[Rfam]
RNA sequence: GGAAAACGGGACAGGGGCUGGGCUAUGAGCCAUCCCGAGCCCUAGGAAGCUUAGGCUCA
Numbered sequence: 001g002g003a004a005a006a007c008g009g010g011a012c013a014g015g016g017g018c019u020g021g022g023c024u025a026u027g028a029g030c031c032a033u034c035c036c037g038a039g040c041c042c043u044a045g046g047a048a049g050c051u052u053a054g055g056c057u058c059a
Stems, first nucleotide, its partner, number of pairs: 014043006020036003027058005
RNA: Ma3 gene ribosomal frameshift signal
Organism: Camelus dromedarius